[Rfam]
RNA sequence: GCCGAGUUGAGUAACUUCAGCUUGUAACCCAAGUGGGGGCUUUGAAGUGAUGGAACAUGGCUGUGGUUUAACAGGUUGGGCUGGUUUGUGCACCAUGCUGGCUUGCCCGCUCCAAGUUGAGAGUUGGGCCAUGGGGUUUAGGCGAAGGCCAAAAUCUCCUGGUCACUAAAAUGGAGGGAACCGCAUGAGGCUGGCUUCACAGAGCAGUGACCACUUCCUGCUCUUGACAGUGGAGGGUUAACAGGCUGCAGCGCUCUCAGCCCAUAUAGCCUGGUAAGCCUGGCCCAUUGAACCAUCACUUUU
Numbered sequence: 001g002c003c004g005a006g007u008u009g010a011g012u013a014a015c016u017u018c019a020g021c022u023u024g025u026a027a028c029c030c031a032a033g034u035g036g037g038g039g040c041u042u043u044g045a046a047g048u049g050a051u052g053g054a055a056c057a058u059g060g061c062u063g064u065g066g067u068u069u070a071a072c073a074g075g076u077u078g079g080g081c082u083g084g085u086u087u088g089u090g091c092a093c094c095a096u097g098c099u100g101g102c103u104u105g106c107c108c109g110c111u112c113c114a115a116g117u118u119g120a121g122a123g124u125u126g127g128g129c130c131a132u133g134g135g136g137u138u139u140a141g142g143c144g145a146a147g148g149c150c151a152a153a154a155u156c157u158c159c160u161g162g163u164c165a166c167u168a169a170a171a172u173g174g175a176g177g178g179a180a181c182c183g184c185a186u187g188a189g190g191c192u193g194g195c196u197u198c199a200c201a202g203a204g205c206a207g208u209g210a211c212c213a214c215u216u217c218c219u220g221c222u223c224u225u226g227a228c229a230g231u232g233g234a235g236g237g238u239u240a241a242c243a244g245g246c247u248g249c250a251g252c253g254c255u256c257u258c259a260g261c262c263c264a265u266a267u268a269g270c271c272u273g274g275u276a277a278g279c280c281u282g283g284c285c286c287a288u289u290g291a292a293c294c295a296u297c298a299c300u301u302u303u
Base pairs, nucleotide, nucleotide: 001040002039003038004023005022006021007020008019009018010017011016028037029036030035044302045301046300047299048298049297050296051295052294053293056290057289058287059286060285061283062282063281065279068277069276070275072273073272074271075270076269077268078263079262080261081260082259083258084257088254089253090252099248100247101246102245103244104243105242107237108236110235111234112233113232114231116228117227118226119225120224121223122222123221124220127164128163129162130161131160133158134157135156136155137154138153139152141150142149143148173218174217175216176215177214184209185208186207191202192201193200

This 303-nucleotide RNA sequence from Lathyrus oleraceus belongs to the Rfam family "Plant signal recognition particle RNA". The literature on the family includes a 2003 paper in Nucleic Acids Res by Rosenblad et al., "SRPDB: Signal Recognition Particle Database". Lineage of the source: Eukaryota > Streptophyta > eudicotyledons > rosids > Lathyrus. A search with the family's covariance model found it, with a score of 247 bits.